[Rfam]
Nucleotides: 168
Base pairs, nucleotide, nucleotide: 001168002167003166004165005164006163007162010067011066012065013064015061016060017059018058020056023053024052025051026050027049028048029047032043033042034041035040072122073121074120075119076118077117078116081113082112083111084110089106090105091104092103093102094101095100126157127156128155129154131152132151137147138146139145140144
Number, partner (000 for none) and nucleotide at each position: 001168a002167g003166a004165u005164g006163c007162c008000a009000g010067g011066g012065u013064c014000a015061u016060a017059a018058g019000c020056c021000u022000g023053a024052a025051a026050c027049c028048a029047c030000g031000a032043u033042g034041u035040g036000c037000u038000u039000g040035c041034a042033c043032a044000g045000g046000a047029g048028u049027g050026g051025u052024u053023u054000a055000c056020g057000a058018c059017u060016u061015a062000a063000u064013g065012a066011c067010c068000c069000g070000c071000c072122c073121c074120g075119a076118c077117a078116u079000g080000a081113g082112c083111a084110u085000a086000a087000a088000a089106g090105u091104g092103g093102a094101g095100c096000g097000u098000a099000a100095g101094c102093u103092u104091c105090a106089c107000g108000a109000u110084a111083u112082g113081c114000g115000a116078a117077u118076g119075u120074c121073g122072g123000a124000c125000a126157g127156a128155a129154u130000c131152g132151u133000g134000a135000g136000a137147g138146u139145a140144c141000g142000a143000a144140g145139u146138a147137c148000g149000g150000a151132a152131c153000c154129a155128u156127u157126c158000g159000u160000a161000u162007g163006g164005c165004a166003u167002c168001u
Annotation
The record is a 168-nucleotide sequence from Firmicutes bacterium CAG:56, which matches "Clostridiales-1 RNA" in Rfam. The family's consensus secondary structure is taken from published work.